Rfam assigns this 58-nucleotide sequence from Desemzia incerta to the family "Ribosomal protein L13 leader". This family is a putative r-protein leader autoregulatory structure found in B. subtilis and other low-GC Gram-positive bacteria. It is located in the 5' untranslated regions of mRNAs encoding the L13-S9 (rplM-rpsI) ribosomal protein operon.
RNA sequence: GGUAUUGUUUGCCCCAUGAUGAGCCCCGGAAACUUAUUGUGCAUCAAACAAACAGAAG
Numbered sequence: 001g002g003u004a005u006u007g008u009u010u011g012c013c014c015c016a017u018g019a020u021g022a023g024c025c026c027c028g029g030a031a032a033c034u035u036a037u038u039g040u041g042c043a044u045c046a047a048a049c050a051a052a053c054a055g056a057a058g
Stems, first nucleotide, its partner, number of pairs: 006054006015041009
Dot-bracket structure: .....((((((...(((((((((.........))))))))).......))))))....

It scores 61 bits against the family's covariance model. The family's consensus secondary structure was predicted with CMfinder.